RNA: glmS glucosamine-6-phosphate activated ribozyme aptamer
Organism: Lysinibacillus composti
RNA sequence: AAAACAAUGAAAGCGCCUGAGCUAAGGAAAUAGGACGGAAAAUUAAUCCUUAGUUGACGAGGUGGAGGAUUAUCGAUAUUUCGGCGGAUGCCUCCCGGUCGAAUGCCCGAUCGUUAUUUUCGUUUUAAAACAUAAAAGUGAUUUUAUGGACAGGAAAACGAAAAAGGCAAAUAA
Numbered sequence: 001a002a003a004a005c006a007a008u009g010a011a012a013g014c015g016c017c018u019g020a021g022c023u024a025a026g027g028a029a030a031u032a033g034g035a036c037g038g039a040a041a042a043u044u045a046a047u048c049c050u051u052a053g054u055u056g057a058c059g060a061g062g063u064g065g066a067g068g069a070u071u072a073u074c075g076a077u078a079u080u081u082c083g084g085c086g087g088a089u090g091c092c093u094c095c096c097g098g099u100c101g102a103a104u105g106c107c108c109g110a111u112c113g114u115u116a117u118u119u120u121c122g123u124u125u126u127a128a129a130a131c132a133u134a135a136a137a138g139u140g141a142u143u144u145u146a147u148g149g150a151c152a153g154g155a156a157a158a159c160g161a162a163a164a165a166g167g168c169a170a171a172u173a174a
Base pairs, nucleotide, nucleotide: 020055021054022053023052024051025050026049027048029047064095065094066093067092068091073084074083075082076081096113097112098111099110100109101108117164118163119162120161121160122159123158131148132147133146134145135144136143137142